The record is a 67-nucleotide sequence from Drosophila rhopaloa, which matches "mir-3 microRNA precursor family" in Rfam. The family's consensus secondary structure was predicted with RNAalifold. The literature on the family includes a 2003 paper in Dev Cell by Aravin et al., "The small RNA profile during Drosophila melanogaster development".

RNA sequence: AUAUUGGGACGCAUCUUGUGCAGUUAUGUUUACAUCUCACAUCACUGGGCAAAGUGUGUCUCAAGAU
Numbered sequence: 001a002u003a004u005u006g007g008g009a010c011g012c013a014u015c016u017u018g019u020g021c022a023g024u025u026a027u028g029u030u031u032a033c034a035u036c037u038c039a040c041a042u043c044a045c046u047g048g049g050c051a052a053a054g055u056g057u058g059u060c061u062c063a064a065g066a067u
Base pairs, nucleotide, nucleotide: 005063006062007061008060009059010058011057012056013055014054017051018050019049021047022046023045024044